[Rfam]
RNA: RT-18 RNA
RNA sequence: CAGCACUUGCUGACGAUGAGCCAUCAGGACACAGCCUGGUACACUUCGGGCCGGGUUUCGCCCCGGAACCACCCGCGGCGAUGGAACGGCUGUGAGGCUACAAGGAG
Numbered sequence: 001c002a003g004c005a006c007u008u009g010c011u012g013a014c015g016a017u018g019a020g021c022c023a024u025c026a027g028g029a030c031a032c033a034g035c036c037u038g039g040u041a042c043a044c045u046u047c048g049g050g051c052c053g054g055g056u057u058u059c060g061c062c063c064c065g066g067a068a069c070c071a072c073c074c075g076c077g078g079c080g081a082u083g084g085a086a087c088g089g090c091u092g093u094g095a096g097g098c099u100a101c102a103a104g105g106a107g
Base pairs, nucleotide, nucleotide: 001012002011003010004009019099020098021097022096030094031093032092033091034090035089036088042083043082044078045077